[Rfam]
RNA: ASpks TB sRNA
RNA sequence: CUUCAGCGACCCCAGCCACAACGGAGCACCCUCCGGGCGACCCUGACCGUACGUCGCCAGCAACGCCUGCGCCUC
Numbered sequence: 001c002u003u004c005a006g007c008g009a010c011c012c013c014a015g016c017c018a019c020a021a022c023g024g025a026g027c028a029c030c031c032u033c034c035g036g037g038c039g040a041c042c043c044u045g046a047c048c049g050u051a052c053g054u055c056g057c058c059a060g061c062a063a064c065g066c067c068u069g070c071g072c073c074u075c
Base pairs, nucleotide, nucleotide: 016024017023031071033069038065039064043060044059045058047056049054